[Rfam]
RNA sequence: AUCGCUUCUCGGCCUUUUGGCUAAGAUCAAGUGUAGCAUCUGUCCUUUAUCAGUUUAAUAUCUGAAACGUCCCAUAUAGUAUAUUGAAUAUAUGCAUAUAUUUAAAUAGAUUUCUGGAACUGGGAGCUGGAAUAGGGGCUUGCUCCCUCCGCUCCACGCAUGGACCUGGUAUUGCAGUAUCUCCAGUAACAGUGCACCUCCU
Dot-bracket structure: ......(((.((((....)))).)))....................((.((((........)))))).(.........................)...........................(((((.((....((((....)))).)).)))))..((((.(..((((.............))))...).)))).......
Source information
Rfam assigns this 202-nucleotide RNA from Muraenolepis orangiensis to the family "U2 spliceosomal RNA". About the family: U2 is a small nuclear RNA (snRNA) component of the spliceosome (involved in pre-mRNA splicing). By type it is a spliceosomal small nuclear RNA. Rfam 15.1 lists 71,512 matches to the family in 2,642 species.